[Rfam]
RNA sequence: GCGAUGAGCUUGUUUGCAUAAGACGCACAAGUACUCCUUAUAGGAACACGUUGUGGAGCGUGACUUGGACGCCGCAAAUUUCGGGAAGCACUCUGUCUUUUAAGCCAGGGUGC
Numbered sequence: 001g002c003g004a005u006g007a008g009c010u011u012g013u014u015u016g017c018a019u020a021a022g023a024c025g026c027a028c029a030a031g032u033a034c035u036c037c038u039u040a041u042a043g044g045a046a047c048a049c050g051u052u053g054u055g056g057a058g059c060g061u062g063a064c065u066u067g068g069a070c071g072c073c074g075c076a077a078a079u080u081u082c083g084g085g086a087a088g089c090a091c092u093c094u095g096u097c098u099u100u101u102a103a104g105c106c107a108g109g110g111u112g113c
Stems, first nucleotide, its partner, number of pairs: 014077004024071002028067005035044002047062002050059003088113008
RNA: BsrF